[Rfam]
RNA: ryfA RNA
RNA sequence: GCGGCCCUUUCCGCCGUCUCGCAAGCGGGCGCUGGCUUAAGGAAAGGAUGUUCCGCGACCGUUAGAGCAAGCGCGUCUCAGCGCUUGCUAUCGCGGCAAUAUCGCCAGUGGUGCUGUCGUGAUGCGGUCUUCGCAUGGACCGCACAAUGAAGAUACGGUGCUUCUGUAUCGUACUUAUUGUUUCUGGUGCGCUGUUUUCCCAAGUAAAUAAUAACCGGAGUCUCUCCGGCGACAAUUUACUGGUGGUUAACAACCUUCAGAGCAGCAAGUAAGCCCGAAUGCCGCCCUUUAGGGCGGCAUAUUUU
Numbered sequence: 001g002c003g004g005c006c007c008u009u010u011c012c013g014c015c016g017u018c019u020c021g022c023a024a025g026c027g028g029g030c031g032c033u034g035g036c037u038u039a040a041g042g043a044a045a046g047g048a049u050g051u052u053c054c055g056c057g058a059c060c061g062u063u064a065g066a067g068c069a070a071g072c073g074c075g076u077c078u079c080a081g082c083g084c085u086u087g088c089u090a091u092c093g094c095g096g097c098a099a100u101a102u103c104g105c106c107a108g109u110g111g112u113g114c115u116g117u118c119g120u121g122a123u124g125c126g127g128u129c130u131u132c133g134c135a136u137g138g139a140c141c142g143c144a145c146a147a148u149g150a151a152g153a154u155a156c157g158g159u160g161c162u163u164c165u166g167u168a169u170c171g172u173a174c175u176u177a178u179u180g181u182u183u184c185u186g187g188u189g190c191g192c193u194g195u196u197u198u199c200c201c202a203a204g205u206a207a208a209u210a211a212u213a214a215c216c217g218g219a220g221u222c223u224c225u226c227c228g229g230c231g232a233c234a235a236u237u238u239a240c241u242g243g244u245g246g247u248u249a250a251c252a253a254c255c256u257u258c259a260g261a262g263c264a265g266c267a268a269g270u271a272a273g274c275c276c277g278a279a280u281g282c283c284g285c286c287c288u289u290u291a292g293g294g295c296g297g298c299a300u301a302u303u304u305u
Stems, first nucleotide, its partner, number of pairs: 007046006014028004029036002058188003068087007090123009100113005124143007144181007154173008189270002192265005217227004242255003277303002279300009